RNA sequence: AUACCUUUCUCGGCCUUUUGGCUAAGAUCAAGUGUAGUAUCUGUUCUUAUCAGUUUAAUAUUUGAUAUGUGGGCCAUGGGCUGCUCGAUAUUAACUCAAUAUUUUGAGGGAAGAAGCCUGACAAUAUAUCUUGCUAUAUGGGUUUCCAUGAGUUGCCCAUGCGUUGCACUAGUGCACGGGCUGGCUCAACCCAC
Numbered sequence: 001a002u003a004c005c006u007u008u009c010u011c012g013g014c015c016u017u018u019u020g021g022c023u024a025a026g027a028u029c030a031a032g033u034g035u036a037g038u039a040u041c042u043g044u045u046c047u048u049a050u051c052a053g054u055u056u057a058a059u060a061u062u063u064g065a066u067a068u069g070u071g072g073g074c075c076a077u078g079g080g081c082u083g084c085u086c087g088a089u090a091u092u093a094a095c096u097c098a099a100u101a102u103u104u105u106g107a108g109g110g111a112a113g114a115a116g117c118c119u120g121a122c123a124a125u126a127u128a129u130c131u132u133g134c135u136a137u138a139u140g141g142g143u144u145u146c147c148a149u150g151a152g153u154u155g156c157c158c159a160u161g162c163g164u165u166g167c168a169c170u171a172g173u174g175c176a177c178g179g180g181c182u183g184g185c186u187c188a189a190c191c192c193a194c
Stems, first nucleotide, its partner, number of pairs: 008027003012023004048067006069084004074079001113146007126137003150187006157179002160176003
RNA: U2 spliceosomal RNA
Organism: Brassica carinata